Rfam assigns this 42-nucleotide sequence to the family "eL15-Euryarchaeota ribosomal protein leader".

RNA sequence: UGGGACCUGGUCCCAUGGAUGUGGCGCAAGCUGAACAAAAGA
Numbered sequence: 001u002g003g004g005a006c007c008u009g010g011u012c013c014c015a016u017g018g019a020u021g022u023g024g025c026g027c028a029a030g031c032u033g034a035a036c037a038a039a040a041g042a
Stems, first nucleotide, its partner, number of pairs: 001015005016038001018036001023032003